[Rfam]
RNA sequence: GAAGCGGGCCAGACCGCCGCCGGUGCAUCCGCCGAAAGGCCGCACGGGAGGAAGGUCCGGACUGCACAGGGCGGCGUAGCAGCCAACGGCUGUCCGGCGUGAGCCGAGGAUCAGAGCAACAGAGACGAGUCGGGGCCGUCUUCGCAAGAAGGCGGUUCCGGGUGAAACGGGCAAUCUCUACGCGCAGCAACACCGAAUAGGCCGGCGAUGAUGUGGCUCCGCGGAGCCGGCGGGUAGGUGGCACCGAGCCGAUGCAGCGAUGCACGGCCCAGAGGAAUGGCGGUCACGGCGGCGGCUUCGCAAGGAGUCGCCGACGCACAGAAUCCGGCCUAUCGGCCCGCUUCACAC
Numbered sequence: 001g002a003a004g005c006g007g008g009c010c011a012g013a014c015c016g017c018c019g020c021c022g023g024u025g026c027a028u029c030c031g032c033c034g035a036a037a038g039g040c041c042g043c044a045c046g047g048g049a050g051g052a053a054g055g056u057c058c059g060g061a062c063u064g065c066a067c068a069g070g071g072c073g074g075c076g077u078a079g080c081a082g083c084c085a086a087c088g089g090c091u092g093u094c095c096g097g098c099g100u101g102a103g104c105c106g107a108g109g110a111u112c113a114g115a116g117c118a119a120c121a122g123a124g125a126c127g128a129g130u131c132g133g134g135g136c137c138g139u140c141u142u143c144g145c146a147a148g149a150a151g152g153c154g155g156u157u158c159c160g161g162g163u164g165a166a167a168c169g170g171g172c173a174a175u176c177u178c179u180a181c182g183c184g185c186a187g188c189a190a191c192a193c194c195g196a197a198u199a200g201g202c203c204g205g206c207g208a209u210g211a212u213g214u215g216g217c218u219c220c221g222c223g224g225a226g227c228c229g230g231c232g233g234g235u236a237g238g239u240g241g242c243a244c245c246g247a248g249c250c251g252a253u254g255c256a257g258c259g260a261u262g263c264a265c266g267g268c269c270c271a272g273a274g275g276a277a278u279g280g281c282g283g284u285c286a287c288g289g290c291g292g293c294g295g296c297u298u299c300g301c302a303a304g305g306a307g308u309c310g311c312c313g314a315c316g317c318a319c320a321g322a323a324u325c326c327g328g329c330c331u332a333u334c335g336g337c338c339c340g341c342u343u344c345a346c347a348c
Stems, first nucleotide, its partner, number of pairs: 001344010011333001012285007020048002023045004053331003057328005062187004069219004074183005079093005094108001095106004109178002114176002116172002131161001135156009191240004201231006212223004248268004253264004
The family of this 348-nucleotide RNA from Piscinibacter aquaticus is "Bacterial RNase P class A".
The match comes from Rfam's covariance-model search (186 bits).
The organism belongs to Piscinibacter, within Bacteria.
The family's RNA type in Rfam is ribozyme.
Rfam links the family to the GO terms tRNA processing, dimeric ribonuclease P complex and ribonuclease P activity.